[Rfam]
RNA sequence: UAGGCGGAUAGGAACCAGGUCAUGUUUGUAUGUGAUUUGGGCCGACAUCCCCGCCGAAAGAAAUUCGUGAAGAUCUAAGGUCGCUUCUGGAUGGAUUUGCCACCGGGUGCACACCAUCUUCAUGUACAAUU
Numbered sequence: 001u002a003g004g005c006g007g008a009u010a011g012g013a014a015c016c017a018g019g020u021c022a023u024g025u026u027u028g029u030a031u032g033u034g035a036u037u038u039g040g041g042c043c044g045a046c047a048u049c050c051c052c053g054c055c056g057a058a059a060g061a062a063a064u065u066c067g068u069g070a071a072g073a074u075c076u077a078a079g080g081u082c083g084c085u086u087c088u089g090g091a092u093g094g095a096u097u098u099g100c101c102a103c104c105g106g107g108u109g110c111a112c113a114c115c116a117u118c119u120u121c122a123u124g125u126a127c128a129a130u131u
Stems, first nucleotide, its partner, number of pairs: 003055005011043002015040011067123008079115003083110002086107005092102003
RNA: Nematode snoRNA ceN39